[Rfam]
RNA: Fungal signal recognition particle RNA
Organism: Eremothecium gossypii
RNA sequence: AGCUGUGACGGCCUUUGGCCGGAAGGGACAUUAGCAAUCCCGGCUUGGUGAGGCGCUCCCGCGUUCGAACCUGCGGCCGGGCAUGGUUGCGGAAAAGCGAGGUUGCCUAGCUCCUCGUGCGCCAUGAUACCACACUGGUCUUUCUGACGCGUGUCCUGCUACUUAUCGAUUUCUGCGGGUUUGCCGUCGAUGCUGACAUGGGAAACCUGUCGGUGGGGCGUGCAGUAAUGGCAGGGCGAAUGCCCGUCCGCUCAUACGCUGGAGGGGAGUUUCAUCCAGCACAGCGCGAGCGGCCCGUGGGGAGGCGAGCAGGAUGGCACGUGUUAGGCGCUUGCGCGGACCUAUCGUGGUAUUGGAGCAUUAUGUUCCGACCGACUUUU
Numbered sequence: 001a002g003c004u005g006u007g008a009c010g011g012c013c014u015u016u017g018g019c020c021g022g023a024a025g026g027g028a029c030a031u032u033a034g035c036a037a038u039c040c041c042g043g044c045u046u047g048g049u050g051a052g053g054c055g056c057u058c059c060c061g062c063g064u065u066c067g068a069a070c071c072u073g074c075g076g077c078c079g080g081g082c083a084u085g086g087u088u089g090c091g092g093a094a095a096a097g098c099g100a101g102g103u104u105g106c107c108u109a110g111c112u113c114c115u116c117g118u119g120c121g122c123c124a125u126g127a128u129a130c131c132a133c134a135c136u137g138g139u140c141u142u143u144c145u146g147a148c149g150c151g152u153g154u155c156c157u158g159c160u161a162c163u164u165a166u167c168g169a170u171u172u173c174u175g176c177g178g179g180u181u182u183g184c185c186g187u188c189g190a191u192g193c194u195g196a197c198a199u200g201g202g203a204a205a206c207c208u209g210u211c212g213g214u215g216g217g218g219c220g221u222g223c224a225g226u227a228a229u230g231g232c233a234g235g236g237c238g239a240a241u242g243c244c245c246g247u248c249c250g251c252u253c254a255u256a257c258g259c260u261g262g263a264g265g266g267g268a269g270u271u272u273c274a275u276c277c278a279g280c281a282c283a284g285c286g287c288g289a290g291c292g293g294c295c296c297g298u299g300g301g302g303a304g305g306c307g308a309g310c311a312g313g314a315u316g317g318c319a320c321g322u323g324u325u326a327g328g329c330g331c332u333u334g335c336g337c338g339g340a341c342c343u344a345u346c347g348u349g350g351u352a353u354u355g356g357a358g359c360a361u362u363a364u365g366u367u368c369c370g371a372c373c374g375a376c377u378u379u380u
Base pairs, nucleotide, nucleotide: 002012003011017377018376020374021373022372025369026368027367028366029365030364031363035355036354037353131349132348133347134345137342138341139340140339141338144327145326146325147324148323149322150321151320152319153318154317155313156312157311158310159309160307170303171302172301173300174299176297177296178295179294182224184222185220186219187218188217191215192214193213194212195211196210197209198208200207201206248293249292250291251290252289253288257286258285259284260283261282266277267276268275